[Rfam]
RNA: mir-9193 microRNA precursor family
RNA sequence: GGGGGAGGGGAGGGAUCCCUCAGCCUGGAUUGCGAGAGGACGCAGGCCAGUCUGAGAGAACCCACUGGUGCACA
Numbered sequence: 001g002g003g004g005g006a007g008g009g010g011a012g013g014g015a016u017c018c019c020u021c022a023g024c025c026u027g028g029a030u031u032g033c034g035a036g037a038g039g040a041c042g043c044a045g046g047c048c049a050g051u052c053u054g055a056g057a058g059a060a061c062c063c064a065c066u067g068g069u070g071c072a073c074a
Stems, first nucleotide, its partner, number of pairs: 001071001003069001006066002012063003016059002019056005025050001027048002030045005